Potassium channel RNA editing signal: a 114-nucleotide RNA. About the family: This family represents a group of sequences related to the human potassium channel Kv1.1 hairpin element which directs the efficient modification of an adenosine to inosine by an adenosine deaminase acting on RNA (ADAR). The ADAR modification causes an isoleucine/valine recoding event which lies in the ion-conducting pore of the potassium channel. It is thought that this editing event targets the process of fast inactivation and allows a more rapid recovery from inactivation at negative potentials. On this family, see Bhalla et al., Nat Struct Mol Biol 2004: "Control of human potassium channel inactivation by editing of a small mRNA hairpin". The family's RNA type in Rfam is cis-regulatory element. The sequence is in the family's curated seed alignment.
[Rfam]
RNA sequence: GUGGGCUAUGGGGACAUGAAGCCCAUCACAGUCGGGGGAAAGAUUGUGGGGUCCCUGUGUGCCAUUGCGGGUGUCUUAACCAUUGCUUUGCCUGUGCCGGUGAUUGUGUCUAAC
Numbered sequence: 001g002u003g004g005g006c007u008a009u010g011g012g013g014a015c016a017u018g019a020a021g022c023c024c025a026u027c028a029c030a031g032u033c034g035g036g037g038g039a040a041a042g043a044u045u046g047u048g049g050g051g052u053c054c055c056u057g058u059g060u061g062c063c064a065u066u067g068c069g070g071g072u073g074u075c076u077u078a079a080c081c082a083u084u085g086c087u088u089u090g091c092c093u094g095u096g097c098c099g100g101u102g103a104u105u106g107u108g109u110c111u112a113a114c
Base pairs, nucleotide, nucleotide: 001114002113004111005110007108008107009106010105011104014101015100018097021095022094037077038076040074049063050062